[Rfam]
RNA sequence: CCCAGGCUGACCCUGGGCUUUGUUGUCUCGUCCCUUCGGGACU
Numbered sequence: 001c002c003c004a005g006g007c008u009g010a011c012c013c014u015g016g017g018c019u020u021u022g023u024u025g026u027c028u029c030g031u032c033c034c035u036u037c038g039g040g041a042c043u
Stems, first nucleotide, its partner, number of pairs: 001017006030042005
The family of this 43-nucleotide RNA from Prosthecobacter dejongeii is "Acido-Lenti-1 RNA". Rfam 15.1 lists 2,607 matches to the family in 171 species. The family's RNA type in Rfam is small RNA. The match comes from Rfam's covariance-model search (37 bits).